A member of the RNA family "TPP riboswitch aptamer (THI element)" from Firmicutes bacterium CAG:308, 102 nucleotides long. On this family, see Welz and Breaker, RNA 2007: "Ligand binding and gene control characteristics of tandem riboswitches in Bacillus anthracis". The base pairs follow the family's consensus structure, which is taken from published work.
RNA sequence: CUGUCAAGACAGGGGCGCCAAUUUUGGCUGAGAUGUUAUGAUAACGGUCCCUCAUGACCUGAACUAGGUAAUGCUAGCGUAGGGAGUCUAUAAAAGUAUUUG
Number, nucleotide and partner (000 for none) at each position: 001c000002u000003g000004u000005c000006a000007a089008g088009a087010c086011a052012g051013g050014g049015g000016c046017g028018c027019c026020a025021a000022u000023u000024u000025u020026g019027g018028c017029u000030g000031a000032g000033a000034u000035g045036u044037u043038a042039u000040g000041a000042u038043a037044a036045c035046g016047g000048u000049c014050c013051c012052u011053c000054a000055u000056g000057a000058c083059c082060u081061g080062a000063a000064c077065u076066a075067g074068g000069u000070a000071a000072u000073g000074c067075u066076a065077g064078c000079g000080u061081a060082g059083g058084g000085a000086g010087u009088c008089u007090a000091u000092a000093a000094a000095a000096g000097u000098a000099u000100u000101u000102g000